[Rfam]
RNA sequence: UUGCUUCAGGGCUGAAUAUGUCCCAAAAUGAGUCCAUCUGAUUCACUUUGUCAGCAGUCUCUGUUACUGGUUUCUUGCCGAUCAUUAGAUGGUGGGAUAUGU
Numbered sequence: 001u002u003g004c005u006u007c008a009g010g011g012c013u014g015a016a017u018a019u020g021u022c023c024c025a026a027a028a029u030g031a032g033u034c035c036a037u038c039u040g041a042u043u044c045a046c047u048u049u050g051u052c053a054g055c056a057g058u059c060u061c062u063g064u065u066a067c068u069g070g071u072u073u074c075u076u077g078c079c080g081a082u083c084a085u086u087a088g089a090u091g092g093u094g095g096g097a098u099a100u101g102u
Base pairs, nucleotide, nucleotide: 033096034095035094036093037092038091050082051081052080054078055077056076057075

Shown here is a 102-nucleotide RNA sequence from Tripterygium wilfordii, a member of the family "Small nucleolar RNA snoR99".
Lineage of the source: Eukaryota > Euphyllophyta > Spermatophyta > Mesangiospermae > Tripterygium.
Pairs were carried over by alignment from the consensus structure, which was predicted with WAR.
It is annotated as an H/ACA-box small nucleolar RNA.
A search with the family's covariance model found it, with a score of 74 bits.
The literature on the family includes a 2002 paper in Curr Biol by Marker et al., "Experimental RNomics: identification of 140 candidates for small non-messenger RNAs in the plant Arabidopsis thaliana".